[Rfam]
RNA: tRNA
RNA sequence: GGUGGGAUGGCAGAGCGGCCUAUUGCGCCGGUCUUGAAAACCGGUAUCCUCACGGAUUCCUGGGUUCAAAUCCCAGUCCCACCG
Numbered sequence: 001g002g003u004g005g006g007a008u009g010g011c012a013g014a015g016c017g018g019c020c021u022a023u024u025g026c027g028c029c030g031g032u033c034u035u036g037a038a039a040a041c042c043g044g045u046a047u048c049c050u051c052a053c054g055g056a057u058u059c060c061u062g063g064g065u066u067c068a069a070a071u072c073c074c075a076g077u078c079c080c081a082c083c084g
Stems, first nucleotide, its partner, number of pairs: 001083007010026004028044005060076005